[Rfam]
RNA sequence: AGUGUGAUUUAGGUAGUUUCAUGUUGUUGGGGCUCCACCUUUCUCUCUACAACAAGGAACUGCCUUAGUCACAUC
Numbered sequence: 001a002g003u004g005u006g007a008u009u010u011a012g013g014u015a016g017u018u019u020c021a022u023g024u025u026g027u028u029g030g031g032g033c034u035c036c037a038c039c040u041u042u043c044u045c046u047c048u049a050c051a052a053c054a055a056g057g058a059a060c061u062g063c064c065u066u067a068g069u070c071a072c073a074u075c
Stems, first nucleotide, its partner, number of pairs: 003073007011065009022054006029047003
Shown here is a 75-nucleotide RNA from Eleutherodactylus coqui, a member of the family "mir-196 microRNA precursor family". Gene Ontology terms of the family: RISC complex and gene silencing by miRNA.